[Rfam]
This 131-nucleotide sequence from Phascolarctos cinereus belongs to the Rfam family "Small Cajal body specific RNA 8". Rfam's curators write: scaRNAs are a specific class of small nuclear RNAs which localise to the Cajal bodies and guide the modification of RNA polymerase II transcribed spliceosomal RNAs U1, U2, U4, U5 and U12. U92 belong to the H/ACA box class of guide RNAs as it has the predicted hairpin-hinge-hairpin-tail structure, conserved H/ACA-box motifs and is found associated with GAR1. Its family is annotated with nucleolus, RNA processing and Cajal body in the Gene Ontology. The family has 22 seed sequences and 955 matches in Rfam 15.1. Lineage of the source: Eukaryota > Chordata > Theria > Diprotodontia > Phascolarctos.
RNA sequence: UGGGAGGCUGAUACACAGGUAGAGCGGAAUUAUUGCUCUAGUUGUCACAAGCUGUCCCAAGAUAAAACUGCCUUUUGAUGACCGGGACGAAUUGAGAGAAAUCGUAACGGACAGAUACGGGGCAAAUAUAU
Numbered sequence: 001u002g003g004g005a006g007g008c009u010g011a012u013a014c015a016c017a018g019g020u021a022g023a024g025c026g027g028a029a030u031u032a033u034u035g036c037u038c039u040a041g042u043u044g045u046c047a048c049a050a051g052c053u054g055u056c057c058c059a060a061g062a063u064a065a066a067a068c069u070g071c072c073u074u075u076u077g078a079u080g081a082c083c084g085g086g087a088c089g090a091a092u093u094g095a096g097a098g099a100a101a102u103c104g105u106a107a108c109g110g111a112c113a114g115a116u117a118c119g120g121g122g123c124a125a126a127u128a129u130a131u
Stems, first nucleotide, its partner, number of pairs: 002058004007053001015045004022038004069124006082110003087105004